[Rfam]
The record is a 240-nucleotide RNA sequence from Origma solitaria, which matches "Small nucleolar RNA SNORA53" in Rfam. The snoRNA ACA53 belongs to the H/ACA family of pseudouridylation guide snoRNAs. Taxonomically the source falls in Origma (Eukaryota, Chordata, Sauria, Acanthizidae). Rfam 15.1 lists 1,090 matches to the family in 800 species.
RNA sequence: CACAUGCUCCUUAGAUCCAUCUUUGUGGGUAUCUUUGUGCUGAGUUCUGCUGGAUAACUUCAGUUUCUAGCAGUUCCAGUGAGAGAUACUCAGCAACUUUCUGGUUGUACAGUCAAAGAUGCUUGAGUCAUUGGCAUGUGAGAGUAAUACAACUGCAUGUUAGCUUUCUGUUCUGAUAGAAGUGGCUGUAGAUGUACAGGUCAUGUCUCACUAUCAGGACUUGGCUGGUAUGCAGACAUU
Number, nucleotide and partner (000 for none) at each position: 001c000002a139003c138004a137005u136006g135007c134008u133009c000010c127011u126012u125013a124014g123015a000016u000017c000018c121019a120020u119021c118022u117023u116024u115025g114026u092027g091028g090029g089030u088031a087032u000033c000034u085035u084036u083037g000038u000039g080040c079041u078042g077043a000044g076045u000046u000047c073048u072049g071050c070051u000052g000053g067054a000055u000056a065057a064058c063059u000060u000061c000062a000063g058064u057065u056066u000067c053068u000069a000070g050071c049072a048073g047074u000075u000076c044077c042078a041079g040080u039081g000082a000083g036084a035085g034086a000087u031088a030089c029090u028091c027092a026093g108094c107095a106096a105097c104098u103099u000100u000101c000102u000103g098104g097105u096106u095107g094108u093109a000110c000111a000112g000113u000114c025115a024116a023117a022118g021119a020120u019121g018122c000123u014124u013125g012126a011127g010128u000129c000130a000131u000132u000133g008134g007135c006136a005137u004138g003139u002140g000141a000142g000143a000144g000145u000146a000147a000148u000149a000150c000151a000152a000153c235154u234155g233156c232157a231158u000159g000160u228161u000162a226163g225164c224165u223166u000167u000168c000169u000170g000171u000172u218173c217174u216175g215176a214177u213178a212179g211180a000181a000182g000183u210184g209185g208186c000187u000188g201189u200190a000191g000192a000193u000194g000195u000196a000197c000198a000199g000200g189201u188202c000203a000204u000205g000206u000207c000208u185209c184210a183211c179212u178213a177214u176215c175216a174217g173218g172219a000220c000221u000222u000223g165224g164225c163226u162227g000228g160229u000230a000231u157232g156233c155234a154235g153236a000237c000238a000239u000240u000